A member of the RNA family "Group II catalytic intron D1-D4-7" from Pedobacter hartonius, 154 nucleotides long. For this family Rfam cites "Group II introns: structure and catalytic versatility of large natural ribozymes" (Lehmann and Schmidt, Crit Rev Biochem Mol Biol, 2003). From the family's description: Group II introns are found in rRNA, tRNA and mRNA of organelles in fungi, plants and protists, and also in mRNA in bacteria.
RNA sequence: CCUGCCAUGCUGUUGGCAGUAGCCUACUUCGACAUGCGAGCCGAGUAAUUGGCUUGUGUGAAGCUCGAAAGACAAUAUACCGAAUGCCUGAUAAGCAGACCCAUUAAACCGUGAGGAUACACUGGGUUCCGGAAAGUUCAAUUCCGGAUAGGGU
Numbered sequence: 001c002c003u004g005c006c007a008u009g010c011u012g013u014u015g016g017c018a019g020u021a022g023c024c025u026a027c028u029u030c031g032a033c034a035u036g037c038g039a040g041c042c043g044a045g046u047a048a049u050u051g052g053c054u055u056g057u058g059u060g061a062a063g064c065u066c067g068a069a070a071g072a073c074a075a076u077a078u079a080c081c082g083a084a085u086g087c088c089u090g091a092u093a094a095g096c097a098g099a100c101c102c103a104u105u106a107a108a109c110c111g112u113g114a115g116g117a118u119a120c121a122c123u124g125g126g127u128u129c130c131g132g133a134a135a136g137u138u139c140a141a142u143u144c145c146g147g148a149u150a151g152g153g154u
Stems, first nucleotide, its partner, number of pairs: 002019006028069005033060012082100001085097003101125003109116002129147006
The match comes from Rfam's covariance-model search (105 bits). Its family is annotated with Group II intron splicing in the Gene Ontology. The source organism's lineage runs through Bacteria, Bacteroidota, Sphingobacteriia, Sphingobacteriaceae and Pedobacter. The base pairs follow the family's consensus structure.